Record summary: This 40-nucleotide sequence from Oceanobacillus oncorhynchi belongs to the Rfam family "Ribosomal protein L19 leader". NCBI's taxonomy places the organism under Bacteria, Bacillota, Caryophanales, Bacillaceae, Oceanobacillus. For this family Rfam cites "Diverse mechanisms for regulating ribosomal protein synthesis in Escherichia coli" (Zengel and Lindahl, Prog Nucleic Acid Res Mol Biol, 1994). From the family's description: This family is a putative r-protein leader autoregulatory structure found in B. subtilis and other low-GC Gram-positive bacteria. It is located in the 5' untranslated regions of mRNAs encoding ribosomal protein L19 (rplS). The match comes from Rfam's covariance-model search (39 bits).
[Rfam]
RNA sequence: ACGAUGUUCCGCUGUUCAGAUAAAAGGGCAUGAGCAUUAG
Numbered sequence: 001a002c003g004a005u006g007u008u009c010c011g012c013u014g015u016u017c018a019g020a021u022a023a024a025a026g027g028g029c030a031u032g033a034g035c036a037u038u039a040g
Stems, first nucleotide, its partner, number of pairs: 003038007013030005
Dot-bracket structure: ..(((((((...(((((........))))).)))))))..